[Rfam]
RNA sequence: UCGUUAUCAAGAAAGGUUGAGGGAUUAGACCCUAUGAAGCCUUGGCAACCCUCCUUUUGGAGAAGGUGCUAAAUUCUACCACGCCCCGCGUGGAUAGAUAACAA
Numbered sequence: 001u002c003g004u005u006a007u008c009a010a011g012a013a014a015g016g017u018u019g020a021g022g023g024a025u026u027a028g029a030c031c032c033u034a035u036g037a038a039g040c041c042u043u044g045g046c047a048a049c050c051c052u053c054c055u056u057u058u059g060g061a062g063a064a065g066g067u068g069c070u071a072a073a074u075u076c077u078a079c080c081a082c083g084c085c086c087c088g089c090g091u092g093g094a095u096a097g098a099u100a101a102c103a104a
Base pairs, nucleotide, nucleotide: 001104003102004101005100006099007098008097013043014042015041016040017039021032022031023030026078027077028076029075044070045069046068047067049066050065051062052061053060054059074096079093080092081091082090083089084088
RNA: SAM riboswitch aptamer (S box leader)
Organism: Antarcticibacterium arcticum